[Rfam]
RNA sequence: UGUCUCCUCCUCCACCUCCCAGGUGGAUUGAGCCCGAACCCCCGGUUCGGGCUUUUUUUC
Numbered sequence: 001u002g003u004c005u006c007c008u009c010c011u012c013c014a015c016c017u018c019c020c021a022g023g024u025g026g027a028u029u030g031a032g033c034c035c036g037a038a039c040c041c042c043c044g045g046u047u048c049g050g051g052c053u054u055u056u057u058u059u060c
Stems, first nucleotide, its partner, number of pairs: 008027003012023002031053008